[Rfam]
RNA sequence: CUCCUGGGUAGAAGCAGUCAGUGUCCGCCACCUUAUAUUAAGAAGGUGAAGCAGUAAGCGGAUUCGGGUCAUUGCUCACGGA
Numbered sequence: 001c002u003c004c005u006g007g008g009u010a011g012a013a014g015c016a017g018u019c020a021g022u023g024u025c026c027g028c029c030a031c032c033u034u035a036u037a038u039u040a041a042g043a044a045g046g047u048g049a050a051g052c053a054g055u056a057a058g059c060g061g062a063u064u065c066g067g068g069u070c071a072u073u074g075c076u077c078a079c080g081g082a
Stems, first nucleotide, its partner, number of pairs: 005078006015067001019068001021065001023063005